A member of the RNA family "Bacterial large subunit ribosomal RNA", 115 nucleotides of a longer RNA.
Gene Ontology terms of the family: ribosome and structural constituent of ribosome.
It scores 927 bits against the family's covariance model.
The family's consensus secondary structure is taken from published work.
RNA sequence: CGAUGUCGACUCAUCUUUUCCUGGGGGUUGUAGUUGCUCCCAAGGGUUCGACUGUUCGUCGAGUAAAAAGGUACGUGAGUUGGGUUUAAUACGAUGUGAAUCAGUAUUGAUUAUA
Numbered sequence: 001c002g003a004u005g006u007c008g009a010c011u012c013a014u015c016u017u018u019u020c021c022u023g024g025g026g027g028u029u030g031u032a033g034u035u036g037c038u039c040c041c042a043a044g045g046g047u048u049c050g051a052c053u054g055u056u057c058g059u060c061g062a063g064u065a066a067a068a069a070g071g072u073a074c075g076u077g078a079g080u081u082g083g084g085u086u087u088a089a090u091a092c093g094a095u096g097u098g099a100a101u102c103a104g105u106a107u108u109g110a111u112u113a114u115a
Stems, first nucleotide, its partner, number of pairs: 007083001008081004012075001013072005020046002023041006048062005089107004093102003